[Rfam]
RNA sequence: AAUGUGGUUAAUGAUGCUCAACUUUUUUCCCCAUCUUAUCGACUCUGGUGAAACCAGUCUGAAAAAAAUAAGCCAAUUUUGUCUGAAACCACAUU
Numbered sequence: 001a002a003u004g005u006g007g008u009u010a011a012u013g014a015u016g017c018u019c020a021a022c023u024u025u026u027u028u029c030c031c032c033a034u035c036u037u038a039u040c041g042a043c044u045c046u047g048g049u050g051a052a053a054c055c056a057g058u059c060u061g062a063a064a065a066a067a068a069u070a071a072g073c074c075a076a077u078u079u080u081g082u083c084u085g086a087a088a089c090c091a092c093a094u095u
Stems, first nucleotide, its partner, number of pairs: 001095009